[Rfam]
RNA sequence: UGAUAGUGCAGUUAAUAAAAAAAGGACUGUAUACUCGUAUUACCGAAUUAACGUUUAAGCGGUAUGUAAUAUCGCCGGUCACGAGACCGCCCCUUACAUAGGGGCGUUUUUUGUUGGG
Numbered sequence: 001u002g003a004u005a006g007u008g009c010a011g012u013u014a015a016u017a018a019a020a021a022a023a024g025g026a027c028u029g030u031a032u033a034c035u036c037g038u039a040u041u042a043c044c045g046a047a048u049u050a051a052c053g054u055u056u057a058a059g060c061g062g063u064a065u066g067u068a069a070u071a072u073c074g075c076c077g078g079u080c081a082c083g084a085g086a087c088c089g090c091c092c093c094u095u096a097c098a099u100a101g102g103g104g105c106g107u108u109u110u111u112u113g114u115u116g117g118g
Stems, first nucleotide, its partner, number of pairs: 007031005012025002034085005042079004046055003059075006086108001088106007
This 118-nucleotide RNA sequence from Lactobacillus xujianguonis belongs to the Rfam family "DUF3800-I RNA".
The organism belongs to Lactobacillus, within Bacteria.
A search with the family's covariance model found it, with a score of 79 bits.
Rfam's curators write: Actinobacteria, Firmicutes, Fusobacteria, Proteobacteria (1 example), Tenericutes (2 examples).